RNA sequence: CCGUGCUAAGCGGGGAGGUAGCGGUGCCCUGUACUCGCAAUCCGCUAUAGCGAGGCCGAAUCCCCACUCCAGGUGGUUCGAAUUCAAGGUCUGCCUCAUGAGAGUGGUGUUGACACCCAGGUCCUGCGCAACGGGAACCAGUGAACCCUGUCAGAUCCGGAAGGAAGCAGCAGUAAGCUGAUCAUCUCGUGUGCCGCGGGAGUGCCUGGGUCGAGCCAUGAACAUGAGUAACGCUUGGGUUCGAGCCAUCGAAAGUGGGUGCACGG
Numbered sequence: 001c002c003g004u005g006c007u008a009a010g011c012g013g014g015g016a017g018g019u020a021g022c023g024g025u026g027c028c029c030u031g032u033a034c035u036c037g038c039a040a041u042c043c044g045c046u047a048u049a050g051c052g053a054g055g056c057c058g059a060a061u062c063c064c065c066a067c068u069c070c071a072g073g074u075g076g077u078u079c080g081a082a083u084u085c086a087a088g089g090u091c092u093g094c095c096u097c098a099u100g101a102g103a104g105u106g107g108u109g110u111u112g113a114c115a116c117c118c119a120g121g122u123c124c125u126g127c128g129c130a131a132c133g134g135g136a137a138c139c140a141g142u143g144a145a146c147c148c149u150g151u152c153a154g155a156u157c158c159g160g161a162a163g164g165a166a167g168c169a170g171c172a173g174u175a176a177g178c179u180g181a182u183c184a185u186c187u188c189g190u191g192u193g194c195c196g197c198g199g200g201a202g203u204g205c206c207u208g209g210g211u212c213g214a215g216c217c218a219u220g221a222a223c224a225u226g227a228g229u230a231a232c233g234c235u236u237g238g239g240u241u242c243g244a245g246c247c248a249u250c251g252a253a254a255g256u257g258g259g260u261g262c263a264c265g266g
Stems, first nucleotide, its partner, number of pairs: 001266006010056002012030004017025001019023001034054005063259006072250005079243010092230002096227005106217003115211008123200006129191002132189005137182001139180004148173004156165003

The family of this 266-nucleotide RNA sequence from Halobacillus andaensis is "Bacterial large signal recognition particle RNA". Pairs were carried over by alignment from the consensus structure, which is taken from published work. It scores 230 bits against the family's covariance model. The family's RNA type in Rfam is non-coding RNA gene.